[Rfam]
Rhizobiales sRNA Atu_At1: a 107-nucleotide RNA sequence from Devosia sp. Root436. On this family, see Wilms et al., RNA Biol 2012: "Deep sequencing uncovers numerous small RNAs on all four replicons of the plant pathogen Agrobacterium tumefaciens". The family's consensus secondary structure was predicted with CMfinder. It scores 97 bits against the family's covariance model. It is annotated as a small RNA.
RNA sequence: GGCCGGCCCGCGUCAACCGGACAUGGUGGUAUAGGGAACGAAGCGGUUUUUCCGGUUUCCCGCUUCGGCCAACGCAGUGGCAGCCGAGCCCUUGUCCCACCCGUGCC
Dot-bracket structure: .....((.(..(((.....)))..(((((...((((..(((((((...............)))))))(((........))).......))))...)).))).).)).
Numbered sequence: 001g002g003c004c005g006g007c008c009c010g011c012g013u014c015a016a017c018c019g020g021a022c023a024u025g026g027u028g029g030u031a032u033a034g035g036g037a038a039c040g041a042a043g044c045g046g047u048u049u050u051u052c053c054g055g056u057u058u059c060c061c062g063c064u065u066c067g068g069c070c071a072a073c074g075c076a077g078u079g080g081c082a083g084c085c086g087a088g089c090c091c092u093u094g095u096c097c098c099a100c101c102c103g104u105g106c107c
Stems, first nucleotide, its partner, number of pairs: 006106002009103001012022003025101003028097002033092004039067007068081003